A member of the RNA family "Small Cajal body specific RNA 3" from Jaculus jaculus, 140 nucleotides long. On this family, see Huttenhofer et al., EMBO J 2001: "RNomics: an experimental approach that identifies 201 candidates for novel, small, non-messenger RNAs in mouse". The family is grouped with related families in Rfam's "SCARNA3 clan". scaRNAs are a specific class of small nuclear RNAs which localise to the Cajal bodies and guide the modification of RNA polymerase II transcribed spliceosomal RNAs U1, U2, U4, U5 and U12. Its family is annotated with RNA processing, nucleolus and Cajal body in the Gene Ontology.
[Rfam]
RNA sequence: GAUGGAAGCUGCAGGCACCUACCAUGUGGACAAAUGAGAAAAUAACCUUGUCUACAGAAGGCAGCAAUCCUACAUAAAUAUGGAGGUCCCUUUCUGAAUUAGGACAGCUGGCUAAAUAUGAUCAUGCCCCUCCAUAUAAC
Numbered sequence: 001g002a003u004g005g006a007a008g009c010u011g012c013a014g015g016c017a018c019c020u021a022c023c024a025u026g027u028g029g030a031c032a033a034a035u036g037a038g039a040a041a042a043u044a045a046c047c048u049u050g051u052c053u054a055c056a057g058a059a060g061g062c063a064g065c066a067a068u069c070c071u072a073c074a075u076a077a078a079u080a081u082g083g084a085g086g087u088c089c090c091u092u093u094c095u096g097a098a099u100u101a102g103g104a105c106a107g108c109u110g111g112c113u114a115a116a117u118a119u120g121a122u123c124a125u126g127c128c129c130c131u132c133c134a135u136a137u138a139a140c
Stems, first nucleotide, its partner, number of pairs: 004070003008065005025056007036048001038046001082133005093121002097117001099115004